[Rfam]
RNA: azaaromatic riboswitch aptamer (yjdF RNA)
Organism: Treponema vincentii
RNA sequence: AGAAAGUAAAACAAAAACACGAACCGGUGAUGGUAGUCCGGUUGAUAUGAGCAAUCAUAUUCAGUAACCUUCAUUUUUUUGAUGUCCGGUUUUACCGAGGCAGUU
Numbered sequence: 001a002g003a004a005a006g007u008a009a010a011a012c013a014a015a016a017a018c019a020c021g022a023a024c025c026g027g028u029g030a031u032g033g034u035a036g037u038c039c040g041g042u043u044g045a046u047a048u049g050a051g052c053a054a055u056c057a058u059a060u061u062c063a064g065u066a067a068c069c070u071u072c073a074u075u076u077u078u079u080u081g082a083u084g085u086c087c088g089g090u091u092u093u094a095c096c097g098a099g100g101c102a103g104u105u
Stems, first nucleotide, its partner, number of pairs: 006095006022043006044061006071082003